The record is a 158-nucleotide sequence from Aspergillus novofumigatus, which matches "A. fumigatus sRNA Afu_254" in Rfam. It is annotated as a small RNA. The family's consensus secondary structure was predicted with WAR.

[Rfam]
RNA sequence: CUACUGAACAAUACAAUCUCAAAGCCUAUCUUCAAGCAACGCUUCGUUCACCACCAACUCAAUCAAAAUGACUCCCUGCUCCUGCAACACCUGCGCCUGCGCCAGCGACUGCAACGGCUGCUCCUGCUCCUCUUGCGGUGUAUGUAUCUCCCAGAUAC
Numbered sequence: 001c002u003a004c005u006g007a008a009c010a011a012u013a014c015a016a017u018c019u020c021a022a023a024g025c026c027u028a029u030c031u032u033c034a035a036g037c038a039a040c041g042c043u044u045c046g047u048u049c050a051c052c053a054c055c056a057a058c059u060c061a062a063u064c065a066a067a068a069u070g071a072c073u074c075c076c077u078g079c080u081c082c083u084g085c086a087a088c089a090c091c092u093g094c095g096c097c098u099g100c101g102c103c104a105g106c107g108a109c110u111g112c113a114a115c116g117g118c119u120g121c122u123c124c125u126g127c128u129c130c131u132c133u134u135g136c137g138g139u140g141u142a143u144g145u146a147u148c149u150c151c152c153a154g155a156u157a158c
Stems, first nucleotide, its partner, number of pairs: 077107004084100003111136003120127002